[Rfam]
RNA sequence: GGUCACGAGAUCUCGCCCAUGGCCCGGCAGGCGAGGCAGCAACCCCCAGAUGGCAGCGGGGUGCUUCCGGGUAUCGACCAGGCCGUCAGGAUCCCUGACGGCAAGUGCCCCGA
Numbered sequence: 001g002g003u004c005a006c007g008a009g010a011u012c013u014c015g016c017c018c019a020u021g022g023c024c025c026g027g028c029a030g031g032c033g034a035g036g037c038a039g040c041a042a043c044c045c046c047c048a049g050a051u052g053g054c055a056g057c058g059g060g061g062u063g064c065u066u067c068c069g070g071g072u073a074u075c076g077a078c079c080a081g082g083c084c085g086u087c088a089g090g091a092u093c094c095c096u097g098a099c100g101g102c103a104a105g106u107g108c109c110c111c112g113a
Stems, first nucleotide, its partner, number of pairs: 001079004009037001011036006020029002038065003043061003047056001082102009
RNA: SAM (S-adenosyl methionine) riboswitch aptamer
Organism: Sanguibacter sp. Leaf3